Notes:
MIR1886 microRNA precursor family: a 52-nucleotide RNA sequence from Solanum tuberosum. The organism belongs to Solanum, within Eukaryota. It scores 68 bits against the family's covariance model. The family's consensus secondary structure was predicted with RNAalifold.
RNA sequence: UGAUAUGAAAUCAGCGUUUGGGUAUGCGAUUUUACAUUGAUUUCAUAUCAUG
Numbered sequence: 001u002g003a004u005a006u007g008a009a010a011u012c013a014g015c016g017u018u019u020g021g022g023u024a025u026g027c028g029a030u031u032u033u034a035c036a037u038u039g040a041u042u043u044c045a046u047a048u049c050a051u052g
Base pairs, nucleotide, nucleotide: 001050002049003048004047005046006045007044008043009042010041011040012039013038014037016035017034018029019028020027